RNA sequence: UGGACAGUGUUGUGUGGAAGACUAGUGAUUUUGUUGUUCUGUUUUUAUUAACAAGGAAUCACUAAUCAUCCCAUAAAGCUGUCCG
Numbered sequence: 001u002g003g004a005c006a007g008u009g010u011u012g013u014g015u016g017g018a019a020g021a022c023u024a025g026u027g028a029u030u031u032u033g034u035u036g037u038u039c040u041g042u043u044u045u046u047a048u049u050a051a052c053a054a055g056g057a058a059u060c061a062c063u064a065a066u067c068a069u070c071c072c073a074u075a076a077a078g079c080u081g082u083c084c085g
Base pairs, nucleotide, nucleotide: 002084003083004082005081006080007079008078010076011075012074013073014072016070017069020067021066025062026061027060028059029058030057031056034054035053036052037051038050
Dot-bracket structure: .(((((((.(((((.((..((...(((((((..(((((...........))))).)))))))...)).)).))))).))))))).